[Rfam]
Rfam assigns this 85-nucleotide sequence from Delftia acidovorans to the family "SAH (S-adenosyl-L-homocysteine) riboswitch aptamer".

RNA sequence: CUCUCCGAGGAGCGUUGCAGCGGCCCCCACACAUCAGGCGUGGUCGCGAGGCUCGGAGUCAUACCUGCAACGACGCUCGCCCACG
Numbered sequence: 001c002u003c004u005c006c007g008a009g010g011a012g013c014g015u016u017g018c019a020g021c022g023g024c025c026c027c028c029a030c031a032c033a034u035c036a037g038g039c040g041u042g043g044u045c046g047c048g049a050g051g052c053u054c055g056g057a058g059u060c061a062u063a064c065c066u067g068c069a070a071c072g073a074c075g076c077u078c079g080c081c082c083a084c085g
Stems, first nucleotide, its partner, number of pairs: 003058006021046005